The family of this 138-nucleotide RNA sequence from Sporomusa ovata is "c-di-AMP riboswitch aptamer (ydaO/yuaA leader)".
RNA sequence: CAUAACAUAAUGCCGAGUUCCAUUUUGGAAGCGGAGGAACCACUUUUUGGGGUUAAUUUUGUCAAUUAGGCAAAAGGGAUGUUUUUCUCUUGUCAUCCUACCCGUCAGCUAACUUCGCAGGCUAAAGCAGGGGUCGAA
Numbered sequence: 001c002a003u004a005a006c007a008u009a010a011u012g013c014c015g016a017g018u019u020c021c022a023u024u025u026u027g028g029a030a031g032c033g034g035a036g037g038a039a040c041c042a043c044u045u046u047u048u049g050g051g052g053u054u055a056a057u058u059u060u061g062u063c064a065a066u067u068a069g070g071c072a073a074a075a076g077g078g079a080u081g082u083u084u085u086u087c088u089c090u091u092g093u094c095a096u097c098c099u100a101c102c103c104g105u106c107a108g109c110u111a112a113c114u115u116c117g118c119a120g121g122c123u124a125a126a127g128c129a130g131g132g133g134u135c136g137a138a
Base pairs, nucleotide, nucleotide: 012122013121014120018030019029020028031118032117033116034115035114036113041049042048050103051102052101058074059073060072061071077098078097079096080095
Dot-bracket structure: ...........(((...(((.......)))((((((....((.....))(((.....((((.........))))..((((..............))))..))).........)))))).)))................
Lineage of the source: Bacteria > Bacillati > Negativicutes > Selenomonadales > Sporomusa. The base pairs follow the family's consensus structure. Gene Ontology terms of the family: regulation of gene expression and cyclic-di-AMP binding. It scores 82 bits against the family's covariance model.